[Rfam]
RNA: nrdJ RNA
RNA sequence: ACCUGUCGCGAACGGCUGUGCGGCCGGGUCGCGACACAAGACAGAACACCGUGUCACGGGAACAACGCGACACUUCAGGGCGUU
Number, nucleotide and partner (000 for none) at each position: 001a000002c000003c000004u036005g035006u034007c033008g032009c031010g030011a029012a000013c026014g025015g024016c023017u022018g000019u000020g000021c000022g017023g016024c015025c014026g013027g000028g000029u011030c010031g009032c008033g007034a006035c005036a004037c000038a000039a000040g000041a000042c000043a000044g000045a000046a000047c000048a000049c000050c000051g073052u072053g071054u070055c069056a000057c067058g066059g000060g000061a000062a000063c000064a000065a000066c058067g057068c000069g055070a054071c053072a052073c051074u000075u000076c000077a000078g000079g000080g000081c000082g000083u000084u000